[Rfam]
The record is a 204-nucleotide RNA sequence from Actinacidiphila paucisporea, which matches "Streptomyces RNA 1601" in Rfam. A reference for the family is Vockenhuber et al. (2011), "Deep sequencing-based identification of small non-coding RNAs in Streptomyces coelicolor", RNA Biol.
RNA sequence: AACGACCGGUCGGACAUCAGUAUGUCCGACCACCAAGUGGAGGCUCCGAUCUCCCACCUGAUCGGCCGGAAGGCCGAUGGGUCCCGGUCAGACGGCAAUCACCGGUAGGACGCCGGUGGGCCCCGUUGAUGCGCCCCGCGGAAUAACGCGGCGGUGCUCCCGGUUGUGAGGAGCCCCGCCUGUGUCCCGUACGGGGCGUUUUCU
Numbered sequence: 001a002a003c004g005a006c007c008g009g010u011c012g013g014a015c016a017u018c019a020g021u022a023u024g025u026c027c028g029a030c031c032a033c034c035a036a037g038u039g040g041a042g043g044c045u046c047c048g049a050u051c052u053c054c055c056a057c058c059u060g061a062u063c064g065g066c067c068g069g070a071a072g073g074c075c076g077a078u079g080g081g082u083c084c085c086g087g088u089c090a091g092a093c094g095g096c097a098a099u100c101a102c103c104g105g106u107a108g109g110a111c112g113c114c115g116g117u118g119g120g121c122c123c124c125g126u127u128g129a130u131g132c133g134c135c136c137c138g139c140g141g142a143a144u145a146a147c148g149c150g151g152c153g154g155u156g157c158u159c160c161c162g163g164u165u166g167u168g169a170g171g172a173g174c175c176c177c178g179c180c181u182g183u184g185u186c187c188c189g190u191a192c193g194g195g196g197c198g199u200u201u202u203c204u
Stems, first nucleotide, its partner, number of pairs: 004089006012027002028083004034060002037057004041052002061078007091127005099119005133197006139189003147184003150180005156174005
Dot-bracket structure: ...((((((..((............))((((..((.((((((........)).)))).))(((((((....))))))).)))))))))).(((((...(((((...........)))))...))))).....(((((((((.....((((((((.(((((.........))))).))))).)))..)))..)))))).......
Rfam's curators write: Identified by deep sequencing of transcriptome at the end of exponential growth phase. Appears longer on northern blot than sequencing transcript. Streptomyces specific.